[Rfam]
RNA sequence: ACCGCUAUGGAUGGCGGUGGUUCCUGCUUCGAGAGUUUUGCACAGCAAAACUCUUAGAUUAAAAAUGUACAAGGAGGUACAUUUUUAAUCAAUC
Numbered sequence: 001a002c003c004g005c006u007a008u009g010g011a012u013g014g015c016g017g018u019g020g021u022u023c024c025u026g027c028u029u030c031g032a033g034a035g036u037u038u039u040g041c042a043c044a045g046c047a048a049a050a051c052u053c054u055u056a057g058a059u060u061a062a063a064a065a066u067g068u069a070c071a072a073g074g075a076g077g078u079a080c081a082u083u084u085u086u087a088a089u090c091a092a093u094c
Base pairs, nucleotide, nucleotide: 001018002017003016004015005014006013032054033053034052035051036050037049038048039047040046041045057090058089059088060087061086062085063084064083065082066081067080068079069078070077
RNA: TD-2 RNA
Organism: Treponema denticola